[Rfam]
RNA sequence: UAUCUCUAUGAUGAUUGGUUUAUAAAUAAAAGUAGUGGACUGACUUCCAUUGAUGAUUACAACCGUUCUGAGAGAUC
Numbered sequence: 001u002a003u004c005u006c007u008a009u010g011a012u013g014a015u016u017g018g019u020u021u022a023u024a025a026a027u028a029a030a031a032g033u034a035g036u037g038g039a040c041u042g043a044c045u046u047c048c049a050u051u052g053a054u055g056a057u058u059a060c061a062a063c064c065g066u067u068c069u070g071a072g073a074g075a076u077c
Stems, first nucleotide, its partner, number of pairs: 002076005